[Rfam]
The family of this 84-nucleotide RNA sequence from Prunus persica is "MIR1511 microRNA precursor family". Pairs were carried over by alignment from the consensus structure, which was predicted with RNAalifold. Gene Ontology terms of the family: RISC complex and miRNA-mediated post-transcriptional gene silencing. Lineage of the source: Eukaryota > Gunneridae > Rosaceae > Amygdaleae > Prunus.
RNA sequence: AUCGUGGUAUCAGAGUCAUGUUAUUUGCAUGUUGCCACCACAUAUGUGUUGCUCAUAUAAAUAACCUGGCUCUGAUACCAUAAC
Dot-bracket structure: .(.(((((((((((((((.((((((((.(((..((.((.........)).)).))).)))))))).))))))))))))))).).
Numbered sequence: 001a002u003c004g005u006g007g008u009a010u011c012a013g014a015g016u017c018a019u020g021u022u023a024u025u026u027g028c029a030u031g032u033u034g035c036c037a038c039c040a041c042a043u044a045u046g047u048g049u050u051g052c053u054c055a056u057a058u059a060a061a062u063a064a065c066c067u068g069g070c071u072c073u074g075a076u077a078c079c080a081u082a083a084c
Stems, first nucleotide, its partner, number of pairs: 002083001004081015020065008029056003034052002037049002